[Rfam]
RNA: pemK RNA
Organism: Christensenella hongkongensis
RNA sequence: AUAAUGAUACUCCCGCCUUGAACGCUUUACAGCAUUGGGCGGCUGCAUGAGAACCAUGCAGGGGGGCGACAUAACCCCGUGG
Dot-bracket structure: ...........(((((((..................))))))(((.(((.....))).)))(((...........))))...
Numbered sequence: 001a002u003a004a005u006g007a008u009a010c011u012c013c014c015g016c017c018u019u020g021a022a023c024g025c026u027u028u029a030c031a032g033c034a035u036u037g038g039g040c041g042g043c044u045g046c047a048u049g050a051g052a053a054c055c056a057u058g059c060a061g062g063g064g065g066g067c068g069a070c071a072u073a074a075c076c077c078c079g080u081g082g
Stems, first nucleotide, its partner, number of pairs: 012079001013042006043061003047057003062078003